Overview: The family of this 100-nucleotide sequence from Methanosarcina sp. MTP4 is "Pyrrolysine insertion sequence mtbB". A reference for the family is Theil Have et al. (2013), "Effects of using coding potential, sequence conservation and mRNA structure conservation for predicting pyrroly-sine containing genes", BMC Bioinformatics.

RNA sequence: UAGAUCGGAGUCGGCGACCCGAUGGGUAUGCCGAUUUCCCACAUCAUGGCCUCCGGUAUGACCGGAAUCAGAGCAGCCGGGGACCUUGUCGCAAGGAUGG
Numbered sequence: 001u002a003g004a005u006c007g008g009a010g011u012c013g014g015c016g017a018c019c020c021g022a023u024g025g026g027u028a029u030g031c032c033g034a035u036u037u038c039c040c041a042c043a044u045c046a047u048g049g050c051c052u053c054c055g056g057u058a059u060g061a062c063c064g065g066a067a068u069c070a071g072a073g074c075a076g077c078c079g080g081g082g083a084c085c086u087u088g089u090c091g092c093a094a095g096g097a098u099g100g
Base pairs, nucleotide, nucleotide: 007038010035011034012033013032014031015030016029017027018026019025073092074091076089077088079086080085

Its family is annotated with pyrrolysine incorporation in the Gene Ontology. The family has 23 seed sequences and 59 matches in Rfam 15.1. Taxonomically the source falls in Methanosarcina (Archaea, Methanobacteriati, Methanosarcinales, Methanosarcinaceae).